[Rfam]
RNA sequence: UAGAGAGGAAGUUCGAUUAAGUUCGGCACAUCGUGUGCCAACAUCGAACGACCCCACGUCGUGUGGG
Numbered sequence: 001u002a003g004a005g006a007g008g009a010a011g012u013u014c015g016a017u018u019a020a021g022u023u024c025g026g027c028a029c030a031u032c033g034u035g036u037g038c039c040a041a042c043a044u045c046g047a048a049c050g051a052c053c054c055c056a057c058g059u060c061g062u063g064u065g066g067g
Stems, first nucleotide, its partner, number of pairs: 011049007025039005053067005